[Rfam]
A member of the RNA family "TD-1 RNA" from Treponema denticola, 123 nucleotides long.

RNA sequence: GUUUAUCUGCCGAGUUUUGUACCAAAGGUACAAAACGUCGCAUUAUUGUAUGCAGUUUGUAAACAAACUGCGUGAAAAAACUUUUUUUGGAAAUUGAUAUUUCCUGCAAAAAGUUUUUAUGGA
Numbered sequence: 001g002u003u004u005a006u007c008u009g010c011c012g013a014g015u016u017u018u019g020u021a022c023c024a025a026a027g028g029u030a031c032a033a034a035a036c037g038u039c040g041c042a043u044u045a046u047u048g049u050a051u052g053c054a055g056u057u058u059g060u061a062a063a064c065a066a067a068c069u070g071c072g073u074g075a076a077a078a079a080a081c082u083u084u085u086u087u088u089g090g091a092a093a094u095u096g097a098u099a100u101u102u103c104c105u106g107c108a109a110a111a112a113g114u115u116u117u118u119a120u121g122g123a
Stems, first nucleotide, its partner, number of pairs: 012039002014036010052071008076118011089104006

NCBI's taxonomy places the organism under Bacteria, Spirochaetia, Treponematales, Treponema, Treponema denticola. The family is grouped with related families in Rfam's "TD (Treponema denticola) motifs". Rfam 15.1 lists 147 matches to the family in 9 species.